A member of the RNA family "tRNA" from Kingdonia uniflora, 71 nucleotides long.
[Rfam]
RNA sequence: GAAUCUAUAGCUUAAAAAGGAAAGAGCACUCACCAUGUGAGAAGAUGAUGGUUCGAACCCAUCUAGAUUCA
Numbered sequence: 001g002a003a004u005c006u007a008u009a010g011c012u013u014a015a016a017a018a019g020g021a022a023a024g025a026g027c028a029c030u031c032a033c034c035a036u037g038u039g040a041g042a043a044g045a046u047g048a049u050g051g052u053u054c055g056a057a058c059c060c061a062u063c064u065a066g067a068u069u070c071a
Base pairs, nucleotide, nucleotide: 001070002069003068004067005066006065007064010027011026012025013024029041030040031039032038033037047063048062049061050060051059
The family's RNA type in Rfam is transfer RNA. Lineage of the source: Eukaryota > Tracheophyta > Magnoliopsida > Ranunculales > Kingdonia. Gene Ontology term of the family: triplet codon-amino acid adaptor activity. The family's consensus secondary structure is taken from published work.